A member of the RNA family "Rhizobiales sRNA Atu_C9" from Neorhizobium sp. SOG26, 201 nucleotides long. The family's consensus secondary structure was predicted with WAR.
RNA sequence: AGUCAACGCAAGGAGGCAGACAUGGGACGUACAUACUCUCUCAAUGUCUUGGUAGUCGGUGCAGCGUUUGUGUUCGUGGCAUCCAUGCUCUUCAUUUGAGCGCCACGCGAGCAACUACCCGGUCACGACUUGCAUCCAUGACCGUUUGAUAAUCAGCACUUCCAGUGAAAGCGCAUGCUCCUUCCAUAGGGCAUGCGUUUU
Numbered sequence: 001a002g003u004c005a006a007c008g009c010a011a012g013g014a015g016g017c018a019g020a021c022a023u024g025g026g027a028c029g030u031a032c033a034u035a036c037u038c039u040c041u042c043a044a045u046g047u048c049u050u051g052g053u054a055g056u057c058g059g060u061g062c063a064g065c066g067u068u069u070g071u072g073u074u075c076g077u078g079g080c081a082u083c084c085a086u087g088c089u090c091u092u093c094a095u096u097u098g099a100g101c102g103c104c105a106c107g108c109g110a111g112c113a114a115c116u117a118c119c120c121g122g123u124c125a126c127g128a129c130u131u132g133c134a135u136c137c138a139u140g141a142c143c144g145u146u147u148g149a150u151a152a153u154c155a156g157c158a159c160u161u162c163c164a165g166u167g168a169a170a171g172c173g174c175a176u177g178c179u180c181c182u183u184c185c186a187u188a189g190g191g192c193a194u195g196c197g198u199u200u201u
Stems, first nucleotide, its partner, number of pairs: 015048004024040004168201013